Nucleotides: 061
Base pairs, nucleotide, nucleotide: 002013003012004011026053027052028051029050030049031048032047035044036043
Number, partner (000 for none) and nucleotide at each position: 001000u002013g003012g004011u005000a006000g007000a008000u009000g010000c011004a012003c013002c014000c015000u016000g017000a018000u019000u020000g021000u022000c023000g024000c025000g026053c027052c028051c029050u030049g031048g032047g033000a034000a035044u036043c037000c038000u039000g040000g041000a042000g043036g044035g045000a046000a047032c048031c049030c050029a051028g052027g053026g054000u055000u056000u057000u058000u059000c060000u061000u

Shown here is a 61-nucleotide sequence from Leptolyngbyaceae cyanobacterium T60_A2020_046, a member of the family "Nitrogen stress-induced RNA 1". The family has 17 seed sequences and 962 matches in Rfam 15.1. Rfam classes the family as a small RNA. The source organism's lineage runs through Bacteria, Bacillati, Cyanophyceae, Leptolyngbyales and Leptolyngbyaceae.